[Rfam]
RNA sequence: AGGCUGGCCAGGCCCAUCAGGGCUUGUGGAAUGGGAAGGAGAAGGGACGCUUCCCCUUCUGCAGGCCUGCUGGGUGUGGCUGGACCC
Numbered sequence: 001a002g003g004c005u006g007g008c009c010a011g012g013c014c015c016a017u018c019a020g021g022g023c024u025u026g027u028g029g030a031a032u033g034g035g036a037a038g039g040a041g042a043a044g045g046g047a048c049g050c051u052u053c054c055c056c057u058u059c060u061g062c063a064g065g066c067c068u069g070c071u072g073g074g075u076g077u078g079g080c081u082g083g084a085c086c087c
Base pairs, nucleotide, nucleotide: 002086003085004083005082006081007080008079009078010077012075013074014073015072016071018069019068020067021066023065024064025063026062027061028060029059030058031057033055034054035053036052037051038050
This 87-nucleotide RNA sequence from Gorilla gorilla belongs to the Rfam family "mir-3127 microRNA precursor family". The family's consensus secondary structure was predicted with RNAalifold. It is one of the family's seed sequences. Its family is annotated with RISC complex and miRNA-mediated post-transcriptional gene silencing in the Gene Ontology. Taxonomically the source falls in Gorilla (Eukaryota, Eumetazoa, Gnathostomata, Mammalia).